[Rfam]
RNA sequence: GGGAGCGGAAAGCCCCUCCCCAACGAGGCUGUAUUCGGCGCGAGCGCCCAUCCACCCCAGCGCCAAUAUGGCUUGACCCGCCCGGUUGUCCCCCCGGGCGGGUC
Numbered sequence: 001g002g003g004a005g006c007g008g009a010a011a012g013c014c015c016c017u018c019c020c021c022a023a024c025g026a027g028g029c030u031g032u033a034u035u036c037g038g039c040g041c042g043a044g045c046g047c048c049c050a051u052c053c054a055c056c057c058c059a060g061c062g063c064c065a066a067u068a069u070g071g072c073u074u075g076a077c078c079c080g081c082c083c084g085g086u087u088g089u090c091c092c093c094c095c096g097g098g099c100g101g102g103u104c
Stems, first nucleotide, its partner, number of pairs: 001020005025074002028072007037064005075104011
RNA: Rhizobiales-2 RNA
Organism: Rhodopseudomonas palustris